[Rfam]
RNA sequence: UAGUCCCGGAGGCCACAGGACGCGCAGAGGCCGGGCGGGGCGGGAGGGGAGGGGCGGGGCGGGGCGAGCGCUGCUGUCAGCCGCCAGCCGGAACUUGUACA
Number, nucleotide and partner (000 for none) at each position: 001u000002a000003g060004u059005c058006c057007c056008g000009g000010a000011g032012g031013c030014c029015a000016c000017a000018g000019g000020a000021c000022g000023c000024g000025c000026a000027g000028a000029g014030g013031c012032c011033g000034g000035g000036c000037g000038g000039g000040g000041c000042g000043g000044g000045a000046g000047g000048g000049g000050a000051g000052g000053g000054g000055c000056g007057g006058g005059g004060c003061g000062g000063g000064g000065c000066g000067a000068g000069c000070g000071c000072u000073g000074c000075u000076g000077u000078c000079a000080g000081c000082c000083g000084c000085c000086a000087g000088c000089c000090g000091g000092a000093a000094c000095u000096u000097g000098u000099a000100c000101a000
This 101-nucleotide RNA sequence belongs to the Rfam family "GRIK4 3 prime UTR element". For this family Rfam cites "A common variant in the 3'UTR of the GRIK4 glutamate receptor gene affects transcript abundance and protects against bipolar disorder" (Pickard et al., Proc Natl Acad Sci U S A, 2008). It is annotated as a non-coding RNA gene.